The family of this 105-nucleotide RNA from Agromyces sp. NDB4Y10 is "Glycine riboswitch aptamer". Taxonomically the source falls in Agromyces (Bacteria, Bacillati, Actinomycetota, Micrococcales). A search with the family's covariance model found it, with a score of 40 bits.
RNA sequence: GCCACUCUGAAAAGCGGAUGCCGCCUCCGGGCUGCCUCCCGCCGAAGGUGAAAGCAAGCUCCCCGGGGCGCGCGAAGCUCUCAGGCCCAUGACAGAGGGGGAGUU
Numbered sequence: 001g002c003c004a005c006u007c008u009g010a011a012a013a014g015c016g017g018a019u020g021c022c023g024c025c026u027c028c029g030g031g032c033u034g035c036c037u038c039c040c041g042c043c044g045a046a047g048g049u050g051a052a053a054g055c056a057a058g059c060u061c062c063c064c065g066g067g068g069c070g071c072g073c074g075a076a077g078c079u080c081u082c083a084g085g086c087c088c089a090u091g092a093c094a095g096a097g098g099g100g101g102a103g104u105u
Stems, first nucleotide, its partner, number of pairs: 002100002005097005016039003041086003044082002048080001050078001054073002